[Rfam]
RNA sequence: CCGUCCUGCCCCUACCAGUGCUGUUCCCCUCACCAGAGCUGUGGUGGGGGAGGACCUGGGGGCGGACGCAGAUCAACCUGCCUCUCAGGUUAGGAGGGCUGCCCCCAAGAGAUGUGCAUGCCCUUAAAGGCACGAGAGAACAUU
Numbered sequence: 001c002c003g004u005c006c007u008g009c010c011c012c013u014a015c016c017a018g019u020g021c022u023g024u025u026c027c028c029c030u031c032a033c034c035a036g037a038g039c040u041g042u043g044g045u046g047g048g049g050g051a052g053g054a055c056c057u058g059g060g061g062g063c064g065g066a067c068g069c070a071g072a073u074c075a076a077c078c079u080g081c082c083u084c085u086c087a088g089g090u091u092a093g094g095a096g097g098g099c100u101g102c103c104c105c106c107a108a109g110a111g112a113u114g115u116g117c118a119u120g121c122c123c124u125u126a127a128a129g130g131c132a133c134g135a136g137a138g139a140a141c142a143u144u
Base pairs, nucleotide, nucleotide: 002068003067004066005065006064009061010060023055024054025053028049029048030047031046032045033044082138083137084136085135086134088131090129091128094125095124096123097122098121099120101117102116103114106111
Dot-bracket structure: .(((((..((............(((..((((((..........))))))...)))....))..))))).............(((((.(.((..((((((.(((..(....)..).))..))))))..)).)..)))))......
The family of this 144-nucleotide sequence from Chelonoidis abingdonii is "Small Cajal body specific RNA 11". Rfam classes the family as a small Cajal body RNA. The family has 24 seed sequences and 853 matches in Rfam 15.1. Rfam links the family to the GO terms RNA processing, Cajal body and nucleolus.